RNA sequence: CCCGGACCCCCCGUGCGGCGGUACCCUCCUGAACCUCCCCAGGGCCGGAAGGCAGCAAGGAUAGGGAGGCUCUGCCGGGUGCACGGGGGGUUCACAGCA
Numbered sequence: 001c002c003c004g005g006a007c008c009c010c011c012c013g014u015g016c017g018g019c020g021g022u023a024c025c026c027u028c029c030u031g032a033a034c035c036u037c038c039c040c041a042g043g044g045c046c047g048g049a050a051g052g053c054a055g056c057a058a059g060g061a062u063a064g065g066g067a068g069g070c071u072c073u074g075c076c077g078g079g080u081g082c083a084c085g086g087g088g089g090g091u092u093c094a095c096a097g098c099a
Base pairs, nucleotide, nucleotide: 004093005092006091007090008089010087011086012085013084014083015082016079019077020076021075022074023073025069026068027067028066029065030064036061037060038059044053045052046051
The family of this 99-nucleotide RNA sequence from Embleya scabrispora is "Bacterial small signal recognition particle RNA". Rfam links the family to the GO terms signal recognition particle, plasma membrane targeting and SRP-dependent cotranslational protein targeting to membrane, signal sequence recognition. The family is grouped with related families in Rfam's "SRP clan". Pairs were carried over by alignment from the consensus structure, which is taken from published work. The family's RNA type in Rfam is non-coding RNA gene. It scores 69 bits against the family's covariance model.